[Rfam]
RNA: U11 spliceosomal RNA
Organism: Batrachochytrium dendrobatidis
RNA sequence: AAAAAGGUCGGGUCCAACCUCAUUGGACAGGAAUAAGCAAGCGGAUGGUUCAUUGCGAUCAGAGCCAAUGCAUAUUGACUUUGCUUUGCAGUACCUCACUUGACUCCCUGCGAUUUGGCAGCAUCAAUAACAAACCGCCCGAGUAAUUUUUAAUAUAGGAGGUGUUCUAACGGCCUGUAUUGUAUCUGC
Numbered sequence: 001a002a003a004a005a006g007g008u009c010g011g012g013u014c015c016a017a018c019c020u021c022a023u024u025g026g027a028c029a030g031g032a033a034u035a036a037g038c039a040a041g042c043g044g045a046u047g048g049u050u051c052a053u054u055g056c057g058a059u060c061a062g063a064g065c066c067a068a069u070g071c072a073u074a075u076u077g078a079c080u081u082u083g084c085u086u087u088g089c090a091g092u093a094c095c096u097c098a099c100u101u102g103a104c105u106c107c108c109u110g111c112g113a114u115u116u117g118g119c120a121g122c123a124u125c126a127a128u129a130a131c132a133a134a135c136c137g138c139c140c141g142a143g144u145a146a147u148u149u150u151u152a153a154u155a156u157a158g159g160a161g162g163u164g165u166u167c168u169a170a171c172g173g174c175c176u177g178u179a180u181u182g183u184a185u186c187u188g189c
Base pairs, nucleotide, nucleotide: 008142009141010140011139012138013027014026015025016024017023028110029109030108031107033105034102035101036100037099111137112136114134115133116132117131160187161186162185163184164183165182168179170178171177172176